Shown here is a 75-nucleotide sequence from Rubrobacter tropicus, a member of the family "c-di-GMP-I-GGC riboswitch aptamer".

RNA sequence: UUACGAAAAGGCAAACCCGCCGCGAGGCGGGGGCGCAAAGCCACGGGCCUCACGUAGGCAGCCGGGUUGCCGAAA
Numbered sequence: 001u002u003a004c005g006a007a008a009a010g011g012c013a014a015a016c017c018c019g020c021c022g023c024g025a026g027g028c029g030g031g032g033g034c035g036c037a038a039a040g041c042c043a044c045g046g047g048c049c050u051c052a053c054g055u056a057g058g059c060a061g062c063c064g065g066g067u068u069g070c071c072g073a074a075a
Stems, first nucleotide, its partner, number of pairs: 001075001011036002016031006034061001039068004044064003047059003

For this family Rfam cites "Bioinformatic analysis of riboswitch structures uncovers variant classes with altered ligand specificity" (Weinberg et al., Proc Natl Acad Sci U S A, 2017).